[Rfam]
The record is a 105-nucleotide RNA sequence from Streptococcus hillyeri, which matches "Trans-activating crRNA" in Rfam. The literature on the family includes a 2012 paper in Science by Jinek et al., "A Programmable Dual-RNA-Guided DNA Endonuclease in Adaptive Bacterial Immunity". The family's RNA type in Rfam is CRISPR RNA. The source organism's lineage runs through Bacteria, Bacillota, Lactobacillales, Streptococcaceae and Streptococcus. Rfam describes the family as follows. RNA-guided Streptococcus pyogenes Cas9 (SpCas9) is a sequence-specific DNA endonuclease, the Trans-activating CRISPR RNA form an hybrid with the crRNA (crRNA/tracrRNA). The RNA hybrid acts as a guide for the endonuclease Cas9.
RNA sequence: UGUUGGAACCAUUCGAAACAACACAGCGAGUUAAAAUAAGGCAGUGAUUUUUAAUCCAGUCCGUAUCCAACUUGAAAAAGUGGGCACCGAUUCGGUGCUUUUUUG
Numbered sequence: 001u002g003u004u005g006g007a008a009c010c011a012u013u014c015g016a017a018a019c020a021a022c023a024c025a026g027c028g029a030g031u032u033a034a035a036a037u038a039a040g041g042c043a044g045u046g047a048u049u050u051u052u053a054a055u056c057c058a059g060u061c062c063g064u065a066u067c068c069a070a071c072u073u074g075a076a077a078a079a080g081u082g083g084g085c086a087c088c089g090a091u092u093c094g095g096u097g098c099u100u101u102u103u104u105g
Stems, first nucleotide, its partner, number of pairs: 001036001003034003009026001012023001040062002070081001072079002083099007